[Rfam]
RNA sequence: AUUUCAUCGUCAGGAGAGCGUGGCUUCUUUUUCAAAGAGCCGCCGCCGAAGGCGCAGGAAGCUGAAAAGUUUCUGAACGCUCAGGUACAAAGGACUGACAAACGUUA
Numbered sequence: 001a002u003u004u005c006a007u008c009g010u011c012a013g014g015a016g017a018g019c020g021u022g023g024c025u026u027c028u029u030u031u032u033c034a035a036a037g038a039g040c041c042g043c044c045g046c047c048g049a050a051g052g053c054g055c056a057g058g059a060a061g062c063u064g065a066a067a068a069g070u071u072u073c074u075g076a077a078c079g080c081u082c083a084g085g086u087a088c089a090a091a092g093g094a095c096u097g098a099c100a101a102a103c104g105u106u107a
Stems, first nucleotide, its partner, number of pairs: 007101001009099005020043007045086003048082002052080003058073006